[Rfam]
RNA: Small nucleolar RNA SNORA69
Organism: Capra hircus
RNA sequence: UAAGUAGAUAGGAAGAUAUACUGUGUUCUUUGAUUGGAAGAAUUUAUUUUGUUAAAAUAACCAUACUACAGAUAUUAUCCUGCUAAAAGAAAAUCUGUGUUGAUCAUUUUUUUCCCUUUAUGGGAGUAAACUCAUGACAGAUUGACAUGAAAAAAA
Dot-bracket structure: ..(((((.............(((((.(.(.................................).).)))))........)))))...........((((((((((.....(((.(.((....)).).))).........)))))))))).......
Numbered sequence: 001u002a003a004g005u006a007g008a009u010a011g012g013a014a015g016a017u018a019u020a021c022u023g024u025g026u027u028c029u030u031u032g033a034u035u036g037g038a039a040g041a042a043u044u045u046a047u048u049u050u051g052u053u054a055a056a057a058u059a060a061c062c063a064u065a066c067u068a069c070a071g072a073u074a075u076u077a078u079c080c081u082g083c084u085a086a087a088a089g090a091a092a093a094u095c096u097g098u099g100u101u102g103a104u105c106a107u108u109u110u111u112u113u114c115c116c117u118u119u120a121u122g123g124g125a126g127u128a129a130a131c132u133c134a135u136g137a138c139a140g141a142u143u144g145a146c147a148u149g150a151a152a153a154a155a156a
Stems, first nucleotide, its partner, number of pairs: 003084005021071005027065001029063001096149010111130003115126001117124002